RNA sequence: AAGCAGGGUGACAUGCCCGUUUGGUAUUAGACUCUGAUGUAUUAUUGUUAUUUAAUUGUUUUGGGAUAACGGGGUUUUACAAUUGG
Dot-bracket structure: ...(((.((((.((.((((((..............................................)))))))).))))..))).
Notes
Rfam assigns this 86-nucleotide sequence from Medicago truncatula to the family "MIR2617 microRNA precursor family". Pairs were carried over by alignment from the consensus structure, which was predicted with RNAalifold. A search with the family's covariance model found it, with a score of 47 bits. The organism belongs to Medicago, within Eukaryota. Rfam links the family to the GO terms RISC complex and miRNA-mediated post-transcriptional gene silencing.